[Rfam]
RNA sequence: UCAUCCAUCAAAGUGGCUGUGAAGCAAUGAUAUUGUCUACUGUUGUAUCACAGCCCCGCUUUGAUGAGCUGAG
Dot-bracket structure: .....((((((((.((((((((...(...................).))))))))...)))))))).......
Numbered sequence: 001u002c003a004u005c006c007a008u009c010a011a012a013g014u015g016g017c018u019g020u021g022a023a024g025c026a027a028u029g030a031u032a033u034u035g036u037c038u039a040c041u042g043u044u045g046u047a048u049c050a051c052a053g054c055c056c057c058g059c060u061u062u063g064a065u066g067a068g069c070u071g072a073g
Stems, first nucleotide, its partner, number of pairs: 006066008015055008026046001
This 73-nucleotide sequence from Lingula anatina belongs to the Rfam family "mir-2 microRNA precursor family". It scores 48 bits against the family's covariance model. On this family, see Lee and Ambros, Science 2001: "An extensive class of small RNAs in Caenorhabditis elegans".